The family of this 74-nucleotide sequence from Alligator mississippiensis is "Mammalian CPEB3 ribozyme". NCBI's taxonomy places the organism under Eukaryota, Opisthokonta, Euteleostomi, Dipnotetrapodomorpha, Alligator. The mammalian CPEB3 ribozyme is a self cleaving RNA located in the second intron of the CPEB3 gene which belongs to a family of genes regulating messenger RNA polyadenylation.
RNA sequence: AGGCAAGUUCAAGGCCAUACCAGAAGUGCUCACAGCACAGACUGUUAGAUUCGAAUGAAUCUGCAAAUUCUGCU
Numbered sequence: 001a002g003g004c005a006a007g008u009u010c011a012a013g014g015c016c017a018u019a020c021c022a023g024a025a026g027u028g029c030u031c032a033c034a035g036c037a038c039a040g041a042c043u044g045u046u047a048g049a050u051u052c053g054a055a056u057g058a059a060u061c062u063g064c065a066a067a068u069u070c071u072g073c074u
Base pairs, nucleotide, nucleotide: 013042015040019074021072022071023070024069025068026038027037028036046063047062048061049060050059051058052057